[Rfam]
RNA sequence: AGGGCAGUAUCGAUGAUGAACUGCACCGCAAUGAUCAACUGAAUAAUGAUAAUCACUAAUUUCUGCCUUGAUCCGGUUGGACAGGGACGGAGGG
Numbered sequence: 001a002g003g004g005c006a007g008u009a010u011c012g013a014u015g016a017u018g019a020a021c022u023g024c025a026c027c028g029c030a031a032u033g034a035u036c037a038a039c040u041g042a043a044u045a046a047u048g049a050u051a052a053u054c055a056c057u058a059a060u061u062u063c064u065g066c067c068u069u070g071a072u073c074c075g076g077u078u079g080g081a082c083a084g085g086g087a088c089g090g091a092g093g094g
Base pairs, nucleotide, nucleotide: 002027003026004024005023006022007021008020010019011018063090064089065088066086067085068084069083070082072081073080074079
RNA: pan motif